Notes
The record is a 148-nucleotide RNA from Phytohabitans flavus, which matches "FMN riboswitch aptamer (RFN element)" in Rfam. Lineage of the source: Bacteria > Bacillati > Actinomycetes > Micromonosporaceae > Phytohabitans.
RNA sequence: ACGCGCUGGCGGGGCUCGGUGAAAUUCCGAACCGGCGGUAAUCCGGGGCGCAUGCCCGGAAAGCCCGCGACCCGGUCGUAGCCAACGACCGGUUGACCUGGUGUGAGUCCAGGGCCGACGGUCAUAGUCCGGAUGGGAGUUAGCGCGC
Dot-bracket structure: ..((((((((......(((.......))).[[((((((........................[[))))...((.................))....(((((.......)))))]])).(((.....]]))).......))))))))..
Rfam links the family to the GO term FMN binding.
The family's consensus secondary structure is taken from published work.